This 229-nucleotide RNA sequence from Miscanthus lutarioriparius belongs to the Rfam family "MIR6217 microRNA precursor family". The match comes from Rfam's covariance-model search (159 bits). The family's consensus secondary structure was predicted with RNAalifold.
[Rfam]
RNA sequence: UGGCUACAAAAAUAAUUUAUUAUGUAGUCACUUUGAGUGUCAAUAAUUACUAUGUUAAUUUACGAGAUUAUAGUAACUCUUUGCUAAGUGGUUUACUAUAACGUUAUGGUAAAUAUUCACAUGUGUUAUAGUAACUCAAUUAUUGUAAAUAUGUAUUAAUAUUAUCAUAAAUUAGUAUAUAAAAUUAUCGUAAAUGGAGAUGGCUACAGAAUAACUUAUUUUGUAGCUG
Numbered sequence: 001u002g003g004c005u006a007c008a009a010a011a012a013u014a015a016u017u018u019a020u021u022a023u024g025u026a027g028u029c030a031c032u033u034u035g036a037g038u039g040u041c042a043a044u045a046a047u048u049a050c051u052a053u054g055u056u057a058a059u060u061u062a063c064g065a066g067a068u069u070a071u072a073g074u075a076a077c078u079c080u081u082u083g084c085u086a087a088g089u090g091g092u093u094u095a096c097u098a099u100a101a102c103g104u105u106a107u108g109g110u111a112a113a114u115a116u117u118c119a120c121a122u123g124u125g126u127u128a129u130a131g132u133a134a135c136u137c138a139a140u141u142a143u144u145g146u147a148a149a150u151a152u153g154u155a156u157u158a159a160u161a162u163u164a165u166c167a168u169a170a171a172u173u174a175g176u177a178u179a180u181a182a183a184a185u186u187a188u189c190g191u192a193a194a195u196g197g198a199g200a201u202g203g204c205u206a207c208a209g210a211a212u213a214a215c216u217u218a219u220u221u222u223g224u225a226g227c228u229g
Stems, first nucleotide, its partner, number of pairs: 001229009011220005017214005023208008032199003038193001041190001043188006051179012066166003070162003075156001080149005088143006094133011108118002